[Rfam]
RNA sequence: UUGCAAAUAGACCUUCUCUUCCUGGUUCUUCCUGGAGUCGGGAAAAGCUGGUUGAGAAGGUGAAAAAUAAAAAAA
Number, nucleotide and partner (000 for none) at each position: 001u000002u000003g000004c000005a000006a000007a000008u000009a000010g000011a000012c000013c000014u058015u057016c056017u055018c054019u000020u000021c051022c050023u000024g049025g048026u000027u000028c000029u044030u043031c042032c041033u040034g039035g000036a000037g000038u000039c034040g033041g032042g031043a030044a029045a000046a000047g000048c025049u024050g022051g021052u000053u000054g018055a017056g016057a015058a014059g000060g000061u000062g000063a000064a000065a000066a000067a000068u000069a000070a000071a000072a000073a000074a000075a000

A member of the RNA family "mir-320 microRNA precursor family" from Sapajus apella, 75 nucleotides long.
For this family Rfam cites "Many novel mammalian microRNA candidates identified by extensive cloning and RAKE analysis" (Berezikov et al., Genome Res, 2006).
The base pairs follow the family's consensus structure, which was predicted with RNAalifold.
Taxonomically the source falls in Sapajus (Eukaryota, Vertebrata, Eutheria, Haplorrhini).